[Rfam]
Shown here is an 85-nucleotide RNA from a Theionarchaea archaeon, a member of the family "tRNA".
The family's RNA type in Rfam is transfer RNA.
Taxonomically the source falls in Theionarchaea (Archaea, Methanobacteriati, Methanobacteriota).
RNA sequence: GCGGGGGUUGCCGAGAUUGGUCAAAGGCGCUAGGUUCAGGGCCUAGUCUUGUAGGAGUUCGAGGGUUCAAAUCCCUUCCCCCGCA
Numbered sequence: 001g002c003g004g005g006g007g008u009u010g011c012c013g014a015g016a017u018u019g020g021u022c023a024a025a026g027g028c029g030c031u032a033g034g035u036u037c038a039g040g041g042c043c044u045a046g047u048c049u050u051g052u053a054g055g056a057g058u059u060c061g062a063g064g065g066u067u068c069a070a071a072u073c074c075c076u077u078c079c080c081c082c083g084c085a
Stems, first nucleotide, its partner, number of pairs: 001084007010028003030046005061077005